A member of the RNA family "Y RNA" from Castor canadensis, 109 nucleotides long. By type it is a non-coding RNA gene. Lineage of the source: Eukaryota > Teleostomi > Euteleostomi > Castorimorpha > Castor. Rfam's curators write: Y RNAs are components of the Ro ribonucleoprotein particle (Ro RNP), in association with Ro60 and La proteins. The Y RNAs and Ro60 and La proteins are well conserved, but the function of the Ro RNP is not known. A search with the family's covariance model found it, with a score of 45 bits. The literature on the family includes a 2000 paper in Nucleic Acids Res by Teunissen et al., "Conserved features of Y RNAs: a comparison of experimentally derived secondary structures".
RNA sequence: GGCUGGUCUGAAGGUAGUAGGUUAUCUAAACUGAUUGUUCACUCAGUUACACCUUGAACUCCUUGUUCUACACUUCCCCACUUCUCACCACUGCACUUGACUGUCUAAA
Numbered sequence: 001g002g003c004u005g006g007u008c009u010g011a012a013g014g015u016a017g018u019a020g021g022u023u024a025u026c027u028a029a030a031c032u033g034a035u036u037g038u039u040c041a042c043u044c045a046g047u048u049a050c051a052c053c054u055u056g057a058a059c060u061c062c063u064u065g066u067u068c069u070a071c072a073c074u075u076c077c078c079c080a081c082u083u084c085u086c087a088c089c090a091c092u093g094c095a096c097u098u099g100a101c102u103g104u105c106u107a108a109a
Base pairs, nucleotide, nucleotide: 001105002104003103005102006101007100008099010098011097014094015093017088018087020085021084045069046068